[Rfam]
Shown here is a 107-nucleotide RNA sequence, a member of the family "PhotoRC-II RNA".
Pairs were carried over by alignment from the consensus structure, which is taken from published work.
RNA sequence: UAACAUAGUUCAUGGAGAAACGGGACUCAUCUCCUUACCGAGACUAUCCAUGUAAAAUAUGUCUCUCAUAUCCACACUGGAGGGUGGUGUGGAGCAUACUGAUACCA
Numbered sequence: 001u002a003a004c005a006u007a008g009u010u011c012a013u014g015g016a017g018a019a020a021c022g023g024g025a026c027u028c029a030u031c032u033c034c035u036u037a038c039c040g041a042g043a044c045u046a047u048c049c050a051u052g053u054a055a056a057a058u059a060u061g062u063c064u065c066u067c068a069u070a071u072c073c074a075c076a077c078u079g080g081a082g083g084g085u086g087g088u089g090u091g092g093a094g095c096a097u098a099c100u101g102a103u104a105c106c107a
Base pairs, nucleotide, nucleotide: 012051013050014049015048016047040065041064042063043062044061071093072092073091074090075089076088077087